[Rfam]
Notes:
Shown here is an 80-nucleotide sequence from Dipodomys ordii, a member of the family "mir-3473 microRNA precursor family".

RNA sequence: ACCACUGAGCCACCUUCCCAGCCUAUUAUAUUAAAUAAUUUAAGAAAGUUAUCAUAGGGCUGGGAAGGUGGCUCAGUGGU
Dot-bracket structure: .(((((((((((((((((((((((................................))))))))))))))))))))))).
Numbered sequence: 001a002c003c004a005c006u007g008a009g010c011c012a013c014c015u016u017c018c019c020a021g022c023c024u025a026u027u028a029u030a031u032u033a034a035a036u037a038a039u040u041u042a043a044g045a046a047a048g049u050u051a052u053c054a055u056a057g058g059g060c061u062g063g064g065a066a067g068g069u070g071g072c073u074c075a076g077u078g079g080u
Stems, first nucleotide, its partner, number of pairs: 002079023